Shown here is a 326-nucleotide RNA from Oceanihabitans sp. IOP_32, a member of the family "Bacterial RNase P class A". It scores 204 bits against the family's covariance model.

RNA sequence: GAAGUAAAUCGCCUUAUCGCUGUCUCGAUUUUUCGAGGUGGAGGAAAGUCCGAACACCAAAGUGCAACAUAGUGGUUAACAGCCACCAGUCGAGAGGCUAGGAAAAGUGCAACAGAAAGAAUGUACAGGUUAUGCUGUAGUGAAAUCAGGUAAACUCUAUGUGGUGCAAUGCCAUGUAAACCAGUGCUUGAGAGUGGCACGUUCGAUGCUGGAGGGUAGGCAGCUAAAGUGUUUUGGUAACAAAACACGCAGAUAAAUGAUAAGGAGGUCUUGUUUUUUUUUAAACUUUAGACUUACAGAAUUCGGCUUAUAGAUUUGCUUAAUUA
Numbered sequence: 001g002a003a004g005u006a007a008a009u010c011g012c013c014u015u016a017u018c019g020c021u022g023u024c025u026c027g028a029u030u031u032u033u034c035g036a037g038g039u040g041g042a043g044g045a046a047a048g049u050c051c052g053a054a055c056a057c058c059a060a061a062g063u064g065c066a067a068c069a070u071a072g073u074g075g076u077u078a079a080c081a082g083c084c085a086c087c088a089g090u091c092g093a094g095a096g097g098c099u100a101g102g103a104a105a106a107g108u109g110c111a112a113c114a115g116a117a118a119g120a121a122u123g124u125a126c127a128g129g130u131u132a133u134g135c136u137g138u139a140g141u142g143a144a145a146u147c148a149g150g151u152a153a154a155c156u157c158u159a160u161g162u163g164g165u166g167c168a169a170u171g172c173c174a175u176g177u178a179a180a181c182c183a184g185u186g187c188u189u190g191a192g193a194g195u196g197g198c199a200c201g202u203u204c205g206a207u208g209c210u211g212g213a214g215g216g217u218a219g220g221c222a223g224c225u226a227a228a229g230u231g232u233u234u235u236g237g238u239a240a241c242a243a244a245a246c247a248c249g250c251a252g253a254u255a256a257a258u259g260a261u262a263a264g265g266a267g268g269u270c271u272u273g274u275u276u277u278u279u280u281u282u283a284a285a286c287u288u289u290a291g292a293c294u295u296a297c298a299g300a301a302u303u304c305g306g307c308u309u310a311u312a313g314a315u316u317u318g319c320u321u322a323a324u325u326a
Base pairs, nucleotide, nucleotide: 002321003320004319005318006317007316008315009314010313011311012265013264014263015262016261017260018259020041021040022039023038024037025036026035027034028033046309047308048307050306051305052304053303054302055166056165057164058163062200063199064198065197067162068161069160070159071158072086073085074084075083076082087101088099089098090097091096102157103156107155108154109151110150124139125138126137127136128135170222171221172220173219181212182211183210184209185208192204193203194202195201229248230247231246232245233244234243235242236241
Its family is annotated with ribonuclease P activity, dimeric ribonuclease P complex and tRNA processing in the Gene Ontology. Lineage of the source: Bacteria > Pseudomonadati > Flavobacteriia > Flavobacteriales > Oceanihabitans.